[Rfam]
RNA sequence: AGGAAAAAUGCGGGAGAGACCUAAUAUAGAUUUUAGUAUGAUUAGGCGCCGAAGGAAGAAGCUAAAAGAUACGCCAUUUUUUAGUGAAUAUCUCAGGCAAAAGGACCGUAUUUGGACA
Numbered sequence: 001a002g003g004a005a006a007a008a009u010g011c012g013g014g015a016g017a018g019a020c021c022u023a024a025u026a027u028a029g030a031u032u033u034u035a036g037u038a039u040g041a042u043u044a045g046g047c048g049c050c051g052a053a054g055g056a057a058g059a060a061g062c063u064a065a066a067a068g069a070u071a072c073g074c075c076a077u078u079u080u081u082u083a084g085u086g087a088a089u090a091u092c093u094c095a096g097g098c099a100a101a102a103g104g105a106c107c108g109u110a111u112u113u114g115g116a117c118a
Base pairs, nucleotide, nucleotide: 006113007112008111009110010109011108012107013106020046021045022044023043024042025041048098049097050096051094052093055092056091061085062084063083064082065081066080067079068078069077070076
A member of the RNA family "Glycine riboswitch aptamer" from Natronincola peptidivorans, 118 nucleotides long. Taxonomically the source falls in Natronincola (Bacteria, Clostridia, Peptostreptococcales, Natronincolaceae). Gene Ontology term of the family: glycine biosynthetic process.